[Rfam]
Rfam assigns this 291-nucleotide sequence from Saonia flava to the family "Bacterial RNase P class A". It scores 204 bits against the family's covariance model. The family's RNA type in Rfam is ribozyme.

RNA sequence: CCAGCAGGUCACCUUAUCGCUCCAAGUAAUUGGGGAGGAAAGUCCGGACACCAUAGUGCAGCAUAGCGGGUAACGCCCGUCCACCGAAAGGUGAGGACAAGUGCAACAGAAAGUAUGUACAGGUAAGGCUGUAGUGAAAUCAGGUAAACUCUAUGCGGUGCAACGCCAUGUAAAUCAGUGUUUAAGGGUGCACGCCCGAGCUGAAGGGUAGGCGGUUUGAACUUUUGGGUAACCAAAAGUCUAGAUAAAUGAUAGGGCUAGACAGAAUCCGGCUUAUGACCUGCUUUUUUA
Dot-bracket structure: ..((((((((((((((((.((((((....))))))....[[[.[[[[[((((...[[[[.((((((((((.....)))))(((((....)))).)((...((((.......................................))..)))))))))))))...((((.......(((((......((((]]]]))))..)))))......))))......((((((((....))))))))..........)))))))..........]]]]]]]].)))))))))......